[Rfam]
RNA sequence: GUACAUAUAGCGCCUAAUUCCCUGAGCCUUAGUGGCUUCGGGAAGCCGGGGACCCAAGCAGGAUUUUCUCUCUGGGGUGAAUGCGAACGAGAGCGGAGUUUUCCGUGGAAGUCGUAAGGCUGGUUCUCUAGCCCAACCCGUCAGCUAACUCGGUCGGCAAAAGAGAAGAUAUGG
Numbered sequence: 001g002u003a004c005a006u007a008u009a010g011c012g013c014c015u016a017a018u019u020c021c022c023u024g025a026g027c028c029u030u031a032g033u034g035g036c037u038u039c040g041g042g043a044a045g046c047c048g049g050g051g052a053c054c055c056a057a058g059c060a061g062g063a064u065u066u067u068c069u070c071u072c073u074g075g076g077g078u079g080a081a082u083g084c085g086a087a088c089g090a091g092a093g094c095g096g097a098g099u100u101u102u103c104c105g106u107g108g109a110a111g112u113c114g115u116a117a118g119g120c121u122g123g124u125u126c127u128c129u130a131g132c133c134c135a136a137c138c139c140g141u142c143a144g145c146u147a148a149c150u151c152g153g154u155c156g157g158c159a160a161a162a163g164a165g166a167a168g169a170u171a172u173g174g
Stems, first nucleotide, its partner, number of pairs: 012158003018044005045154006055074002075139003083115004118133004
c-di-AMP riboswitch aptamer (ydaO/yuaA leader): a 174-nucleotide RNA sequence from Corynebacterium sp. HMSC08D02. A search with the family's covariance model found it, with a score of 67 bits. Lineage of the source: Bacteria > Bacillati > Actinomycetota > Mycobacteriales > Corynebacterium.